[Rfam]
RNA sequence: UGCGUUAUGAUGAAAUUAGGCAUAACGGAGAAGGAUUGUUGUCAAGAUCUCGGUCCAGAAUUUAUUAAUAAUAUUAGUA
Numbered sequence: 001u002g003c004g005u006u007a008u009g010a011u012g013a014a015a016u017u018a019g020g021c022a023u024a025a026c027g028g029a030g031a032a033g034g035a036u037u038g039u040u041g042u043c044a045a046g047a048u049c050u051c052g053g054u055c056c057a058g059a060a061u062u063u064a065u066u067a068a069u070a071a072u073a074u075u076a077g078u079a
Stems, first nucleotide, its partner, number of pairs: 003027007058074001062071003